[Rfam]
RNA sequence: GAUCACGAAGUCCGACGAGCCCUCUCAUGGGCAAGGCCUCCCGGCCCGUCGGCUGGCAACCGCGCUGAUCGCGCACGGUGCCCCCGGGAGAAGAUCUGUCGGCGUCUGCACACCCGCGCGCCGAAAGUGCGACUU
Numbered sequence: 001g002a003u004c005a006c007g008a009a010g011u012c013c014g015a016c017g018a019g020c021c022c023u024c025u026c027a028u029g030g031g032c033a034a035g036g037c038c039u040c041c042c043g044g045c046c047c048g049u050c051g052g053c054u055g056g057c058a059a060c061c062g063c064g065c066u067g068a069u070c071g072c073g074c075a076c077g078g079u080g081c082c083c084c085c086g087g088g089a090g091a092a093g094a095u096c097u098g099u100c101g102g103c104g105u106c107u108g109c110a111c112a113c114c115c116g117c118g119c120g121c122c123g124a125a126a127g128u129g130c131g132a133c134u135u
Stems, first nucleotide, its partner, number of pairs: 001096004009054001012052005055082003060078003064074002099124007107116002
Dot-bracket structure: ((((....(..(((((...............................))))).)(((..(((.((.......)).))).)))..........))))..(((((((.((......)).)))))))...........

Source information:
Rfam assigns this 135-nucleotide RNA sequence from Corynebacterium imitans to the family "SAM (S-adenosyl methionine) riboswitch aptamer". Rfam links the family to the GO terms S-adenosylmethionine metabolic process and regulation of gene expression. Pairs were carried over by alignment from the consensus structure, which is taken from published work. About the family: SAM-IV is a mRNA element that regulates gene expression via direct sensing of S-adenosylmethionine (SAM or AdoMet). A search with the family's covariance model found it, with a score of 56 bits.